[Rfam]
RNA sequence: CCCUGACAGUCGCAUCAUGUGGCUGACAUUUGCCAAGACAGGAGUAUAUCAUG
Number, nucleotide and partner (000 for none) at each position: 001c000002c042003c041004u040005g039006a000007c025008a024009g023010u022011c021012g000013c000014a000015u000016c000017a000018u000019g000020u000021g011022g010023c009024u008025g007026a000027c000028a000029u000030u000031u000032g000033c000034c000035a000036a000037g000038a000039c005040a004041g003042g002043a000044g000045u000046a000047u000048a000049u000050c000051a000052u000053g000
Overview: A member of the RNA family "Mu-gpT-DE RNA", 53 nucleotides long. The family's consensus secondary structure is taken from published work. Rfam classes the family as a small RNA.